[Rfam]
RNA sequence: GUUCCUUGAAAGACAUGGGUAGUGAGAUGUCUUGUAUUCCCAUCUCACUACCUUGUCUUUGACGGAAAA
Numbered sequence: 001g002u003u004c005c006u007u008g009a010a011a012g013a014c015a016u017g018g019g020u021a022g023u024g025a026g027a028u029g030u031c032u033u034g035u036a037u038u039c040c041c042a043u044c045u046c047a048c049u050a051c052c053u054u055g056u057c058u059u060u061g062a063c064g065g066a067a068a069a
Base pairs, nucleotide, nucleotide: 009060010059011058012057013056014055015054017053018052019051021049022048023047024046025045026044027043028042029041

This 69-nucleotide RNA sequence from Stegodyphus mimosarum belongs to the Rfam family "mir-71 microRNA precursor family". Rfam links the family to the GO terms miRNA-mediated post-transcriptional gene silencing and RISC complex. A search with the family's covariance model found it, with a score of 66 bits. Pairs were carried over by alignment from the consensus structure, which was predicted with RNAalifold.